[Rfam]
RNA sequence: CGGCAACAAUGAUGACAGCAGUUGUAACUGUAUGUAAUGUUCCGUUACUACAUGGAGACAGCAGUCCCUCUAAACUGAUGUUGCCG
Numbered sequence: 001c002g003g004c005a006a007c008a009a010u011g012a013u014g015a016c017a018g019c020a021g022u023u024g025u026a027a028c029u030g031u032a033u034g035u036a037a038u039g040u041u042c043c044g045u046u047a048c049u050a051c052a053u054g055g056a057g058a059c060a061g062c063a064g065u066c067c068c069u070c071u072a073a074a075c076u077g078a079u080g081u082u083g084c085c086g
Stems, first nucleotide, its partner, number of pairs: 001086007

Overview
This 86-nucleotide RNA from Herpetotheres cachinnans belongs to the Rfam family "Small nucleolar RNA SNORD127". The family's consensus secondary structure was predicted with WAR. Its family is annotated with nucleolus and RNA processing in the Gene Ontology. A reference for the family is Yang et al. (2006), "snoSeeker: an advanced computational package for screening of guide and orphan snoRNA genes in the human genome", Nucleic Acids Res.